[Rfam]
RNA sequence: AGUCGAUAAAGGCAAACCCAUCGAAAGGUGGGGGCGCAAAGCCAUGGGUCUAAGGCCUCGCUCCGGAGGCUAUGAUUGCCAGGUUGCCGAA
Number, nucleotide and partner (000 for none) at each position: 001a000002g000003u000004c000005g000006a000007u000008a000009a000010a000011g000012g037013c036014a000015a000016a000017c032018c031019c030020a029021u028022c027023g000024a000025a000026a000027g022028g021029u020030g019031g018032g017033g000034g000035c000036g013037c012038a000039a000040a085041g084042c083043c082044a000045u081046g080047g079048g076049u075050c074051u000052a000053a000054g000055g070056c069057c068058u067059c000060g000061c000062u000063c000064c000065g000066g000067a058068g057069g056070c055071u000072a000073u000074g050075a049076u048077u000078g000079c047080c046081a045082g043083g042084u041085u040086g000087c000088c000089g000090a000091a000